[Rfam]
RNA sequence: AUGAUGGAUGGGGAUGGAGUCCCCCGAUAACCGCCUCGUCUUCGAGGCUGAUGGCUCCUACCGCACG
Numbered sequence: 001a002u003g004a005u006g007g008a009u010g011g012g013g014a015u016g017g018a019g020u021c022c023c024c025c026g027a028u029a030a031c032c033g034c035c036u037c038g039u040c041u042u043c044g045a046g047g048c049u050g051a052u053g054g055c056u057c058c059u060a061c062c063g064c065a066c067g
Stems, first nucleotide, its partner, number of pairs: 010025004016058006033048006
RNA: Fluoride riboswitch aptamer (crcB RNA motif)